tRNA: a 72-nucleotide RNA sequence. Rfam's curators put it in the seed alignment.
RNA sequence: UGGGUUGUAGCUAAAUGUAAAGGCGCUUGGCCGUUAACCAAGAAAUAGUAGGAUAAAAACCUAUCUUCCCAG
Numbered sequence: 001u002g003g004g005u006u007g008u009a010g011c012u013a014a015a016u017g018u019a020a021a022g023g024c025g026c027u028u029g030g031c032c033g034u035u036a037a038c039c040a041a042g043a044a045a046u047a048g049u050a051g052g053a054u055a056a057a058a059a060c061c062u063a064u065c066u067u068c069c070c071a072g
Base pairs, nucleotide, nucleotide: 001071002070003069004068007065010024011023012022026042027041028040029039030038048064049063050062051061052060
From the family's description: Transfer RNA (tRNA) molecules are approximately 80 nucleotides in length.